[Rfam]
RNA: mir-15 microRNA precursor family
RNA sequence: AUUUGCUCCGCGUUAGCAGCACGUAAAUAUUGGGUGAUGUUGCAUAGCCCCAAUAUUGUUGUGCUGCUUAAGCGUGGCAAGG
Dot-bracket structure: .(((((......(.(((((((((..(((((((((..............)))))))))..))))))))).)......))))).